[Rfam]
RNA sequence: AGCAGAGUAGGAUUUUGCGCGUUGUAGUGCCUUCUGAACGGGGAGUUGUCGGAGGGACGAAAAGCCCAUUGGCUUGCGGUGCAAAGUUCGCAUCCCGCAGCU
Numbered sequence: 001a002g003c004a005g006a007g008u009a010g011g012a013u014u015u016u017g018c019g020c021g022u023u024g025u026a027g028u029g030c031c032u033u034c035u036g037a038a039c040g041g042g043g044a045g046u047u048g049u050c051g052g053a054g055g056g057a058c059g060a061a062a063a064g065c066c067c068a069u070u071g072g073c074u075u076g077c078g079g080u081g082c083a084a085a086g087u088u089c090g091c092a093u094c095c096c097g098c099a100g101c102u
Stems, first nucleotide, its partner, number of pairs: 001102003005098001010089010020078003027058002030056008041095003045091001062075004

This 102-nucleotide RNA from Oxobacter pfennigii belongs to the Rfam family "THF (Tetrahydrofolate) riboswitch aptamer". Taxonomically the source falls in Oxobacter (Bacteria, Bacillota, Clostridia, Eubacteriales). It scores 81 bits against the family's covariance model. Gene Ontology term of the family: tetrahydrofolate metabolic process. From the family's description: Tetrahydrofolate (THF) riboswitch was first reported for Ames et al. as an RNA motif in 5' untranslated (5'-UTR)regions of folate transport and biosynthesis genes in Firmicutes genomes.